[Rfam]
RNA sequence: CCCCUCGAAACAUGCCGCAGCAUGACCUCGUCGGAGAUGGUUGGUGAGGUAGAGCACUGAUUGAGGAUUCCGGGGGAGAAAUCCCUCGCUCUUCUGUCAAACUCCAAACUCCCCAACGUCGUAGAUGACGGGUAGUCCGGACUACGGGGUAAGCUUGUAGUCCGUAAGGGAGACAACCCAGACCGUGGUUGAUGCCCCCGAAUGUAGGCUAAGUGUCAACACUGAAUGAGGUCCCAGGCCAAAGACAACUGGAAGGUGAGCUUAGAAGCAGCUACCCUUUAAAAAGUGCGUAACAGCUUACCAGUCAAGGUUUGGGGCGCAGAAAAUGGACGGGGCUAAAGCCUACUGCAGAGACCACGGCGCACCGAUUCGUCGGUGAUCGCGUAGAGGGGCGUCCUGUAUGGAUAGAAGCAGGGGCGUAAGGUCCUGUGGACCGUACAGGAAUGAGAAU
Numbered sequence: 001c002c003c004c005u006c007g008a009a010a011c012a013u014g015c016c017g018c019a020g021c022a023u024g025a026c027c028u029c030g031u032c033g034g035a036g037a038u039g040g041u042u043g044g045u046g047a048g049g050u051a052g053a054g055c056a057c058u059g060a061u062u063g064a065g066g067a068u069u070c071c072g073g074g075g076g077a078g079a080a081a082u083c084c085c086u087c088g089c090u091c092u093u094c095u096g097u098c099a100a101a102c103u104c105c106a107a108a109c110u111c112c113c114c115a116a117c118g119u120c121g122u123a124g125a126u127g128a129c130g131g132g133u134a135g136u137c138c139g140g141a142c143u144a145c146g147g148g149g150u151a152a153g154c155u156u157g158u159a160g161u162c163c164g165u166a167a168g169g170g171a172g173a174c175a176a177c178c179c180a181g182a183c184c185g186u187g188g189u190u191g192a193u194g195c196c197c198c199c200g201a202a203u204g205u206a207g208g209c210u211a212a213g214u215g216u217c218a219a220c221a222c223u224g225a226a227u228g229a230g231g232u233c234c235c236a237g238g239c240c241a242a243a244g245a246c247a248a249c250u251g252g253a254a255g256g257u258g259a260g261c262u263u264a265g266a267a268g269c270a271g272c273u274a275c276c277c278u279u280u281a282a283a284a285a286g287u288g289c290g291u292a293a294c295a296g297c298u299u300a301c302c303a304g305u306c307a308a309g310g311u312u313u314g315g316g317g318c319g320c321a322g323a324a325a326a327u328g329g330a331c332g333g334g335g336c337u338a339a340a341g342c343c344u345a346c347u348g349c350a351g352a353g354a355c356c357a358c359g360g361c362g363c364a365c366c367g368a369u370u371c372g373u374c375g376g377u378g379a380u381c382g383c384g385u386a387g388a389g390g391g392g393c394g395u396c397c398u399g400u401a402u403g404g405a406u407a408g409a410a411g412c413a414g415g416g417g418c419g420u421a422a423g424g425u426c427c428u429g430u431g432g433a434c435c436g437u438a439c440a441g442g443a444a445u446g447a448g449a450a451u
Stems, first nucleotide, its partner, number of pairs: 001392006011024005026135001027132006036120003040117005046111002052105001053103002059098003063094005072087006139163009168179003183360007193350003202347001204346006227321002231318010248305005254278003259273003279283001284299001288297002361382002363378005393446001395443010411430006418423001